[Rfam]
RNA sequence: UUGGGUGAAAUUAAUGUGGGUCCUACACUUUGGAAAUGGGUCCCACUCAAAGUGGUUGGACCCAUGUUCAUUUCACCUAA
Numbered sequence: 001u002u003g004g005g006u007g008a009a010a011u012u013a014a015u016g017u018g019g020g021u022c023c024u025a026c027a028c029u030u031u032g033g034a035a036a037u038g039g040g041u042c043c044c045a046c047u048c049a050a051a052g053u054g055g056u057u058g059g060a061c062c063c064a065u066g067u068u069c070a071u072u073u074c075a076c077c078u079a080a
Stems, first nucleotide, its partner, number of pairs: 001080011013068006023058001025056001026054007
RNA: MIR5269 microRNA precursor family
Organism: Medicago truncatula